Wolbachia sRNA 46: a 137-nucleotide sequence from Trichonephila clavata. For this family Rfam cites "Wolbachia small noncoding RNAs and their role in cross-kingdom communications" (Mayoral et al., Proc Natl Acad Sci U S A, 2014). Lineage of the source: Eukaryota > Eumetazoa > Entelegynae > Araneoidea > Trichonephila. Pairs were carried over by alignment from the consensus structure. The family's RNA type in Rfam is small RNA.
RNA sequence: ACUUGUUCCUUUAUGAUGGUGUCAUUCCAGUGCUUGACACUGGAAUCCAGGAAACUUAACUCUAAAUGAGCGCACCAGGUAAUAAAAACUGGAUCCCAGUGUCAAGCACUGGGAUGACACCUUUGUGUUUGAGGCAA
Numbered sequence: 001a002c003u004u005g006u007u008c009c010u011u012u013a014u015g016a017u018g019g020u021g022u023c024a025u026u027c028c029a030g031u032g033c034u035u036g037a038c039a040c041u042g043g044a045a046u047c048c049a050g051g052a053a054a055c056u057u058a059a060c061u062c063u064a065a066a067u068g069a070g071c072g073c074a075c076c077a078g079g080u081a082a083u084a085a086a087a088a089c090u091g092g093a094u095c096c097c098a099g100u101g102u103c104a105a106g107c108a109c110u111g112g113g114a115u116g117a118c119a120c121c122u123u124u125g126u127g128u129u130u131g132a133g134g135c136a137a
Stems, first nucleotide, its partner, number of pairs: 011132003015128001020119024045094006